[Rfam]
Annotation
The family of this 132-nucleotide sequence from Lupinus albus is "MIR408 microRNA precursor family".
RNA sequence: UUAGAGAGAACCGACAAAGCUAGGGAAGAGACUGAGCGUGGAUGAGGCUAUCAACAGAAGAAUGAGAGAAUGAAUUUGUUGUAGCUUUAUUCACGCACUGCCUCUUCCCUGGCUAAGUCUCUUUCCUUAUAU
Number, nucleotide and partner (000 for none) at each position: 001u000002u000003a000004g000005a000006g000007a000008g000009a000010a000011c000012c000013g000014a000015c000016a000017a000018a114019g113020c000021u111022a110023g109024g108025g107026a106027a105028g000029a103030g102031a000032c100033u000034g098035a000036g096037c095038g094039u093040g092041g091042a000043u000044g000045a087046g086047g085048c084049u083050a000051u000052c000053a000054a000055c000056a000057g000058a000059a000060g000061a000062a000063u000064g000065a000066g000067a000068g000069a000070a000071u000072g000073a000074a000075u000076u000077u000078g000079u000080u000081g000082u000083a049084g048085c047086u046087u045088u000089a000090u000091u041092c040093a039094c038095g037096c036097a000098c034099u000100g032101c000102c030103u029104c000105u027106u026107c025108c024109c023110u022111g021112g000113c019114u018115a000116a000117g000118u000119c000120u000121c000122u000123u000124u000125c000126c000127u000128u000129a000130u000131a000132u000